[Rfam]
RNA: U4 spliceosomal RNA
RNA sequence: UCCCUUGCGCUUGGGCGGGUGACGCAGCUGAUGAGGUGACACCGAGGCUCGUCUAUUGCUGGUUGAAAACUACUCCAACAUCCCUCUGCGGGCCGGGUAAAUUCACCCGGGCCUCAGAGAAUUUCUUUUUUCGAAA
Numbered sequence: 001u002c003c004c005u006u007g008c009g010c011u012u013g014g015g016c017g018g019g020u021g022a023c024g025c026a027g028c029u030g031a032u033g034a035g036g037u038g039a040c041a042c043c044g045a046g047g048c049u050c051g052u053c054u055a056u057u058g059c060u061g062g063u064u065g066a067a068a069a070c071u072a073c074u075c076c077a078a079c080a081u082c083c084c085u086c087u088g089c090g091g092g093c094c095g096g097g098u099a100a101a102u103u104c105a106c107c108c109g110g111g112c113c114u115c116a117g118a119g120a121a122u123u124u125c126u127u128u129u130u131u132c133g134a135a136a
Base pairs, nucleotide, nucleotide: 021053022052023051024050027048028047029046035043036042037041084119085118086117087116088115090113091112093110094109095108096107097106098105